[Rfam]
RNA sequence: AUUUAAGGAAUACAGGCUAAGACCGCCACGUCCUGUGGCAACACCUGCAUGACCCACAUCGUGUAGG
Numbered sequence: 001a002u003u004u005a006a007g008g009a010a011u012a013c014a015g016g017c018u019a020a021g022a023c024c025g026c027c028a029c030g031u032c033c034u035g036u037g038g039c040a041a042c043a044c045c046u047g048c049a050u051g052a053c054c055c056a057c058a059u060c061g062u063g064u065a066g067g
Base pairs, nucleotide, nucleotide: 011049013047014046015045016044025039026038027037028036029035053067054066056064057063
RNA: Bacillaceae-1 RNA
Organism: Terrihalobacillus insolitus